About this RNA:
A member of the RNA family "Archaeal signal recognition particle RNA" from Halobacterium bonnevillei, 313 nucleotides long. Its family is annotated with signal recognition particle, plasma membrane targeting and SRP-dependent cotranslational protein targeting to membrane, signal sequence recognition in the Gene Ontology. The family is grouped with related families in Rfam's "SRP clan". Lineage of the source: Archaea > Methanobacteriota > Halobacteria > Halobacteriales > Halobacterium. The family's RNA type in Rfam is non-coding RNA gene.
RNA sequence: AACUGGACUAGGCCGGGCGGUUUGGCCCUGCCCUCCACCCGCGAGAUAGUCAUCAGCGGGGGCCGAAAUCCUGGGGAGUCCGGUCGACCUGUCCGGGCCCCGGGAGCCAACGUGGAAGCCUCGUCCUUCGGGGACGGCGGUCCGCGGCGCGCACCUGCAGGGGUGUCGUCGGCGCGGUUCGUCGGUGCCACUCCGUCAGGCACGGAAGUGAGCAGCGGAGCACCGAACGUUCGUCGCUCGAAGGGUCGCGGGGUGGAGAAGGCGACCGGGACUACCCGGGCGGGAACACCGGGCAACCCGGGGCCGUCCAUCA
Numbered sequence: 001a002a003c004u005g006g007a008c009u010a011g012g013c014c015g016g017g018c019g020g021u022u023u024g025g026c027c028c029u030g031c032c033c034u035c036c037a038c039c040c041g042c043g044a045g046a047u048a049g050u051c052a053u054c055a056g057c058g059g060g061g062g063c064c065g066a067a068a069u070c071c072u073g074g075g076g077a078g079u080c081c082g083g084u085c086g087a088c089c090u091g092u093c094c095g096g097g098c099c100c101c102g103g104g105a106g107c108c109a110a111c112g113u114g115g116a117a118g119c120c121u122c123g124u125c126c127u128u129c130g131g132g133g134a135c136g137g138c139g140g141u142c143c144g145c146g147g148c149g150c151g152c153a154c155c156u157g158c159a160g161g162g163g164u165g166u167c168g169u170c171g172g173c174g175c176g177g178u179u180c181g182u183c184g185g186u187g188c189c190a191c192u193c194c195g196u197c198a199g200g201c202a203c204g205g206a207a208g209u210g211a212g213c214a215g216c217g218g219a220g221c222a223c224c225g226a227a228c229g230u231u232c233g234u235c236g237c238u239c240g241a242a243g244g245g246u247c248g249c250g251g252g253g254u255g256g257a258g259a260a261g262g263c264g265a266c267c268g269g270g271a272c273u274a275c276c277c278g279g280g281c282g283g284g285a286a287c288a289c290c291g292g293g294c295a296a297c298c299c300g301g302g303g304c305c306g307u308c309c310a311u312c313a
Stems, first nucleotide, its partner, number of pairs: 004310005011064004015033006038060005069303007078294004082289001088284010099270005106263003111258001113256001118254007125244008133235004137230003140179001142177005148171002151166006182226007192219005201210003